[Rfam]
RNA sequence: GAAAUGGCCGACUAGGGUUCCGGCCCACCCGCACGGGUGGGUGACUGGUCCGAGAGUGGGCGACCUCGGAGCGGCGGGAAGCCGCGGGGUUACACGGCGGGAUAAAAGCCCGGGAGAA
Number, nucleotide and partner (000 for none) at each position: 001g000002a000003a000004a000005u000006g000007g061008c060009c059010g000011a057012c056013u000014a000015g051016g050017g000018u000019u000020c048021c047022g045023g042024c041025c040026c039027a038028c037029c000030c000031g000032c000033a000034c000035g000036g000037g028038u027039g026040g025041g024042u023043g000044a000045c022046u000047g021048g020049u000050c016051c015052g000053a000054g000055a000056g012057u011058g000059g009060g008061c007062g091063a090064c089065c088066u087067c086068g085069g000070a000071g000072c000073g000074g000075c000076g000077g000078g000079a000080a000081g000082c000083c000084g000085c068086g067087g066088g065089g064090u063091u062092a000093c113094a000095c116096g000097g000098c000099g111100g110101g109102a000103u000104a000105a000106a000107a000108g000109c101110c100111c099112g000113g093114g000115a000116g095117a000118a000
RNA: Guanidine-I riboswitch aptamer
Organism: Ectopseudomonas mendocina